[Rfam]
RNA: CyVA-1 RNA
Organism: Gloeothece verrucosa
RNA sequence: UUACUGGAUGGGGGUUUUACCGUUGUGAACCAUUGCUAUUUGCCGAAGGAGAGCGACGACAAGCAAAUAGACAGUAA
Numbered sequence: 001u002u003a004c005u006g007g008a009u010g011g012g013g014g015u016u017u018u019a020c021c022g023u024u025g026u027g028a029a030c031c032a033u034u035g036c037u038a039u040u041u042g043c044c045g046a047a048g049g050a051g052a053g054c055g056a057c058g059a060c061a062a063g064c065a066a067a068u069a070g071a072c073a074g075u076a077a
Base pairs, nucleotide, nucleotide: 001077002076003075004074005073006072009032010031011030037069038068039067040066041065042064043063